Small nucleolar RNA SNORA1: a 133-nucleotide RNA sequence from Carlito syrichta. The family has 29 seed sequences and 1,282 matches in Rfam 15.1. ACA1 is a member of the H/ACA class of snoRNA that guide the sites of modification of uridines to pseudouridines. Lineage of the source: Eukaryota > Opisthokonta > Tetrapoda > Theria > Carlito.
RNA sequence: AGCCCCAUUCUACAUGAUAAUGGGCACAGUUGAUCAUGGAGUCCAAAAAUUAUUAAUGUUGCUAAAUUGAGACACAAGUUAUGCAUCCAUCACAGUAUGUAUUGCAGCGGUGGCAAUGAGACUUGUAAUAUUU
Numbered sequence: 001a002g003c004c005c006c007a008u009u010c011u012a013c014a015u016g017a018u019a020a021u022g023g024g025c026a027c028a029g030u031u032g033a034u035c036a037u038g039g040a041g042u043c044c045a046a047a048a049a050u051u052a053u054u055a056a057u058g059u060u061g062c063u064a065a066a067u068u069g070a071g072a073c074a075c076a077a078g079u080u081a082u083g084c085a086u087c088c089a090u091c092a093c094a095g096u097a098u099g100u101a102u103u104g105c106a107g108c109g110g111u112g113g114c115a116a117u118g119a120g121a122c123u124u125g126u127a128a129u130a131u132u133u
Stems, first nucleotide, its partner, number of pairs: 002062002006058003021045005027039001074126005088112004093107001